[Rfam]
This 86-nucleotide RNA sequence from Solanum tuberosum belongs to the Rfam family "MIR8024 microRNA precursor family". Gene Ontology terms of the family: RISC complex and miRNA-mediated post-transcriptional gene silencing. The family has 2 seed sequences and 661 matches in Rfam 15.1. The match comes from Rfam's covariance-model search (84 bits).
RNA sequence: UUGAAUAAUGUGAAGACUUCAACUUGCAUACUUGGAGGAUUUGAAGACUUCAACUUGUAUACAUGGAUGAUUUGAAUACUUCAACU
Numbered sequence: 001u002u003g004a005a006u007a008a009u010g011u012g013a014a015g016a017c018u019u020c021a022a023c024u025u026g027c028a029u030a031c032u033u034g035g036a037g038g039a040u041u042u043g044a045a046g047a048c049u050u051c052a053a054c055u056u057g058u059a060u061a062c063a064u065g066g067a068u069g070a071u072u073u074g075a076a077u078a079c080u081u082c083a084a085c086u
Base pairs, nucleotide, nucleotide: 001084002083003082004081005080009076011074012073013072014071018067019066020065021064025059026058027057028056032053033052034051035050036049037048